[Rfam]
Rfam assigns this 378-nucleotide RNA from Thermincola carboxydiphila to the family "Bacterial RNase P class A". By type it is a ribozyme. The match comes from Rfam's covariance-model search (330 bits).
RNA sequence: UGAGUAAAUCAGAUGAUCGCGGGUAUAAAUUCAUGUUUAUACCUGAGGAAAGUCCGAGCUCCACAGGGCAGGGUGCUGGGUAAUACCCAGUGGGGGCGACCCCAAGGAAAGUGCCACAGAAACAAACCGCCUCCUACUGGAGGUUGGAGGUUACUUCUAACCUCUAGUAUGGGGUAAGGGUGGAACGGUGAGGUAAGAGCUCACCAGCGGUUAGGCGACUAACCGGCUAGGUAAACCCCACCUGGAGCAAGACCAAAUAGGGGAACAAUGGAGCGGCCCGUUCCGUUCCCGGGUAAGGUCGCUAGAGGCGGCAGGUAACUGUCGUCCCAGAUAGAUGAUCAUCCACGACAGAACUCGGCUUAUCGAUUUACUCGGUUU
Numbered sequence: 001u002g003a004g005u006a007a008a009u010c011a012g013a014u015g016a017u018c019g020c021g022g023g024u025a026u027a028a029a030u031u032c033a034u035g036u037u038u039a040u041a042c043c044u045g046a047g048g049a050a051a052g053u054c055c056g057a058g059c060u061c062c063a064c065a066g067g068g069c070a071g072g073g074u075g076c077u078g079g080g081u082a083a084u085a086c087c088c089a090g091u092g093g094g095g096g097c098g099a100c101c102c103c104a105a106g107g108a109a110a111g112u113g114c115c116a117c118a119g120a121a122a123c124a125a126a127c128c129g130c131c132u133c134c135u136a137c138u139g140g141a142g143g144u145u146g147g148a149g150g151u152u153a154c155u156u157c158u159a160a161c162c163u164c165u166a167g168u169a170u171g172g173g174g175u176a177a178g179g180g181u182g183g184a185a186c187g188g189u190g191a192g193g194u195a196a197g198a199g200c201u202c203a204c205c206a207g208c209g210g211u212u213a214g215g216c217g218a219c220u221a222a223c224c225g226g227c228u229a230g231g232u233a234a235a236c237c238c239c240a241c242c243u244g245g246a247g248c249a250a251g252a253c254c255a256a257a258u259a260g261g262g263g264a265a266c267a268a269u270g271g272a273g274c275g276g277c278c279c280g281u282u283c284c285g286u287u288c289c290c291g292g293g294u295a296a297g298g299u300c301g302c303u304a305g306a307g308g309c310g311g312c313a314g315g316u317a318a319c320u321g322u323c324g325u326c327c328c329a330g331a332u333a334g335a336u337g338a339u340c341a342u343c344c345a346c347g348a349c350a351g352a353a354c355u356c357g358g359c360u361u362a363u364c365g366a367u368u369u370a371c372u373c374g375g376u377u378u
Base pairs, nucleotide, nucleotide: 001374002373003372004371005370006369007368008367009366010365011363012343013342014341015340016339017338018337020045021044022043023042024041025040026039027038028037050361051360052359054358055357056356057355058354059247060246061245062244066279067278068277069276071243072242073241074240075239076090077089078088079087080086091105092103093102094101095100106238107237111236112235113232114231115230127179128178129175130174131173132172133171135169136168137167138166139165140164141163142162143161144160145159146158147157148156149155187205188204189203190202191201192200207227208225209224210223211222212221213220214219251300252299253298254297261290262289263288264287265286266285270284271283272282273281274280307326308325309324310323311322312321313320314319